This 301-nucleotide RNA from Senna tora belongs to the Rfam family "Plant signal recognition particle RNA". Gene Ontology terms of the family: signal recognition particle, endoplasmic reticulum targeting and SRP-dependent cotranslational protein targeting to membrane, signal sequence recognition. Rfam classes the family as a non-coding RNA gene. Its Rfam clan is "SRP clan".
[Rfam]
RNA sequence: GCUGAGCUAACGCGAGCUUGUAACUCAAGUGAGGGCAUUAAAAUGAUAGGACACAGUUCAGGCGUUGCUUGGUUGGGUUUGAGGUUGCUACUUGCUGGCUUGCCCACUCCAAGUUGUGAACCGAGCCAUGGUGCCCGAUCGGAGGGUUGAGUGUCUUGGCUCCUAGACGAGAGGGAAUGGUGUGAGGCUGACUUCACAGAGUAGCGAUAACCUAUGGCUCUUGACAGUGGGAAGGAUAACAGGCUGUUACACUUCUAGUUCAAUAUGCAUGAUGGCCCGAACUACUUGAACCAUAAUCUUU
Numbered sequence: 001g002c003u004g005a006g007c008u009a010a011c012g013c014g015a016g017c018u019u020g021u022a023a024c025u026c027a028a029g030u031g032a033g034g035g036c037a038u039u040a041a042a043a044u045g046a047u048a049g050g051a052c053a054c055a056g057u058u059c060a061g062g063c064g065u066u067g068c069u070u071g072g073u074u075g076g077g078u079u080u081g082a083g084g085u086u087g088c089u090a091c092u093u094g095c096u097g098g099c100u101u102g103c104c105c106a107c108u109c110c111a112a113g114u115u116g117u118g119a120a121c122c123g124a125g126c127c128a129u130g131g132u133g134c135c136c137g138a139u140c141g142g143a144g145g146g147u148u149g150a151g152u153g154u155c156u157u158g159g160c161u162c163c164u165a166g167a168c169g170a171g172a173g174g175g176a177a178u179g180g181u182g183u184g185a186g187g188c189u190g191a192c193u194u195c196a197c198a199g200a201g202u203a204g205c206g207a208u209a210a211c212c213u214a215u216g217g218c219u220c221u222u223g224a225c226a227g228u229g230g231g232a233a234g235g236a237u238a239a240c241a242g243g244c245u246g247u248u249a250c251a252c253u254u255c256u257a258g259u260u261c262a263a264u265a266u267g268c269a270u271g272a273u274g275g276c277c278c279g280a281a282c283u284a285c286u287u288g289a290a291c292c293a294u295a296a297u298c299u300u301u
Base pairs, nucleotide, nucleotide: 001036002035003034004019005018006017007016008015024033025032026031040300041299043297044296046294047293049291052288053287056283057281058280059279061277062276065274068271070269071268075261076260077259078258079257081255082254083253086251087250089249090248096246097245098244099243100242101241102240104235105234108232109231110229111228113225114224115223116222118220119219121217123162124161125160126159127158128157130155131154132153133152134151136149137148138147139146140145170215172213173212174211179208181206182205183204188199189198190197